[Rfam]
RNA sequence: UUGCAAUGAUGACUUGAGAAUCUGUCAAUCCACUGAGUGUUCACUGAUGACUCCAUGUUUCUGAGCAA
Numbered sequence: 001u002u003g004c005a006a007u008g009a010u011g012a013c014u015u016g017a018g019a020a021u022c023u024g025u026c027a028a029u030c031c032a033c034u035g036a037g038u039g040u041u042c043a044c045u046g047a048u049g050a051c052u053c054c055a056u057g058u059u060u061c062u063g064a065g066c067a068a
Base pairs, nucleotide, nucleotide: 001068002067003066004065
Shown here is a 68-nucleotide RNA sequence from Microtus ochrogaster, a member of the family "Small nucleolar RNA SNORD110".
NCBI's taxonomy places the organism under Eukaryota, Metazoa, Vertebrata, Sarcopterygii, Microtus.
Clan: SNORD110 clan.
Its family is annotated with RNA processing and nucleolus in the Gene Ontology.
The family's RNA type in Rfam is C/D-box small nucleolar RNA.
A search with the family's covariance model found it, with a score of 84 bits.